[Rfam]
Shown here is a 98-nucleotide RNA sequence from Eleutherodactylus coqui, a member of the family "Vault RNA".
RNA sequence: AGGUCAGCCUAUAGCUCAGCGGUUCCUUCAGCUAUCCACAAAGCAUAUGAUUUCAAUCCUUCGGGGUUCUAAACCCGCGGGCGCCACCUGACCUCUUU
Dot-bracket structure: .((((((......((((.((((....((..(....................................)..))..)))))))).....)))))).....
For this family Rfam cites "Evolution of Vault RNAs" (Stadler et al., Mol Biol Evol, 2009). By type it is a non-coding RNA gene.